[Rfam]
RNA: HDV ribozyme from F. prausnitzii
Organism: Rodentolepis nana
RNA sequence: GGGGUGCGUUAUAGACUUACCUCCACGUGGUGCACCCUGGGAAACGUAUAUUAAUAUGGCAAAAAAGUCUAU
Numbered sequence: 001g002g003g004g005u006g007c008g009u010u011a012u013a014g015a016c017u018u019a020c021c022u023c024c025a026c027g028u029g030g031u032g033c034a035c036c037c038u039g040g041g042a043a044a045c046g047u048a049u050a051u052u053a054a055u056a057u058g059g060c061a062a063a064a065a066a067g068u069c070u071a072u
Stems, first nucleotide, its partner, number of pairs: 001038007019031003045058005